[Rfam]
RNA: Group II catalytic intron D1-D4-3
Organism: Bacillus sp. NRRL B-14911
RNA sequence: UCCAUGGCGACGUGGAAUCUGAAGGAAGCCCUAGGCAAAUCCUCGGUCUGAGGUACACGAAUCACAUUUGAGGUGGACUGUUUCAGGACGAGUUUGCAAAACAAAACAAAGUCCAAAAUAUCCCCGGAUGGAACAGACAUAAAUGUGGCAGAUAUAUGAGGAGAAAGUGGAUGAA
Numbered sequence: 001u002c003c004a005u006g007g008c009g010a011c012g013u014g015g016a017a018u019c020u021g022a023a024g025g026a027a028g029c030c031c032u033a034g035g036c037a038a039a040u041c042c043u044c045g046g047u048c049u050g051a052g053g054u055a056c057a058c059g060a061a062u063c064a065c066a067u068u069u070g071a072g073g074u075g076g077a078c079u080g081u082u083u084c085a086g087g088a089c090g091a092g093u094u095u096g097c098a099a100a101a102c103a104a105a106a107c108a109a110a111g112u113c114c115a116a117a118a119u120a121u122c123c124c125c126g127g128a129u130g131g132a133a134c135a136g137a138c139a140u141a142a143a144u145g146u147g148g149c150a151g152a153u154a155u156a157u158g159a160g161g162a163g164a165a166a167g168u169g170g171a172u173g174a175a
Base pairs, nucleotide, nucleotide: 001016002015003014004013005012006011030173032171035168036167040162041161042160043159044158045157046153047152048151049150050149062148063147064146065145066144067143073140074139075138079135080134081133082132083131084130086114087113088112089111092107093106094105095104
Dot-bracket structure: ((((((....)))))).............(.(..((...(((((((((((...........((((((.....(((...((((((.((((..((((........))))...))))...............))))))..)))..)))))))))))...))))))....))..).)..